[Rfam]
RNA: SAM riboswitch aptamer (S box leader)
Organism: Dendrosporobacter quercicolus
RNA sequence: UACUCAUCAAGAGUUGGUGGAGGGAAUGGCCCGAUGAAACCGCGGCAACCAUUUGACGAUGUCAAAAACGGUGCCAAAUCCUGCAGCAGUAGCUGCAAGAUGGGAG
Numbered sequence: 001u002a003c004u005c006a007u008c009a010a011g012a013g014u015u016g017g018u019g020g021a022g023g024g025a026a027u028g029g030c031c032c033g034a035u036g037a038a039a040c041c042g043c044g045g046c047a048a049c050c051a052u053u054u055g056a057c058g059a060u061g062u063c064a065a066a067a068a069c070g071g072u073g074c075c076a077a078a079u080c081c082u083g084c085a086g087c088a089g090u091a092g093c094u095g096c097a098a099g100a101u102g103g104g105a106g
Stems, first nucleotide, its partner, number of pairs: 001106001003104006013043001015042004022032003028081002044075004049071002052066003079098001084095004
Dot-bracket structure: (.((((((....(.((((...(((...[[)))......)))))((((.((.(((.........)))...))))))...(]]..((((....))))..))))))).)